[Rfam]
RNA sequence: AUACUUACCUGGACGGGGUCUAUGGGUGAUCAAGAAGGCCCAUGGCCUAGGUUAACGACUUCCAUUGCACUUUGGAGGGGCGUUCGCCUAAGAUCUCCCCAAUGUGGGAGAGUCUACGUCAUAAUUUGUGGUAGUGGGGGUACGCGUUCGCGCGGCCCCUG
Number, nucleotide and partner (000 for none) at each position: 001a000002u000003a000004c000005u000006u000007a000008c000009c000010u000011g000012g120013a119014c118015g117016g048017g047018g046019u045020c044021u000022a000023u042024g041025g040026g039027u038028g000029a000030u000031c000032a000033a000034g000035a000036a000037g000038g027039c026040c025041c024042a023043u000044g020045g019046c018047c017048u016049a089050g088051g087052u000053u086054a000055a083056c082057g081058a000059c079060u078061u077062c075063c074064a000065u000066u000067g000068c000069a000070c000071u000072u000073u000074g063075g062076a000077g061078g060079g059080g000081c057082g056083u055084u000085c000086g053087c051088c050089u049090a000091a115092g114093a113094u111095c110096u109097c000098c107099c106100c000101a000102a000103u000104g000105u000106g099107g098108g000109a096110g095111a094112g000113u093114c092115u091116a000117c015118g014119u013120c012121a000122u000123a000124a000125u000126u000127u000128g000129u000130g000131g000132u000133a000134g000135u000136g160137g159138g158139g157140g156141u000142a000143c154144g153145c152146g151147u000148u000149c000150g000151c146152g145153c144154g143155g000156c140157c139158c138159c137160u136161g000
RNA: U1 spliceosomal RNA
Organism: Macleaya cordata